RNA sequence: GGUCCGAUGCCACGUCGUUAAUAGCAUACAAUGCGAUGAUUAUAGAUGCUAUGAUUAGACCAAGAUUACACUUUAAUUAUUGUUUUGCAUUUUGAUAGAAAUCUGUUGGUCUAUUUUUAGUGAUUAAACAGAGUCGUUUGUGCUAUUACAUUU
Numbered sequence: 001g002g003u004c005c006g007a008u009g010c011c012a013c014g015u016c017g018u019u020a021a022u023a024g025c026a027u028a029c030a031a032u033g034c035g036a037u038g039a040u041u042a043u044a045g046a047u048g049c050u051a052u053g054a055u056u057a058g059a060c061c062a063a064g065a066u067u068a069c070a071c072u073u074u075a076a077u078u079a080u081u082g083u084u085u086u087g088c089a090u091u092u093u094g095a096u097a098g099a100a101a102u103c104u105g106u107u108g109g110u111c112u113a114u115u116u117u118u119a120g121u122g123a124u125u126a127a128a129c130a131g132a133g134u135c136g137u138u139u140g141u142g143c144u145a146u147u148a149c150a151u152u153u
Base pairs, nucleotide, nucleotide: 002060003059004058006056007055008054009052013048014047015046016045020041021040022039024034025033026032085145087143088142089141098135099134103131104130105129107126108125109124110123111122
RNA: Small nucleolar RNA snoR2/U65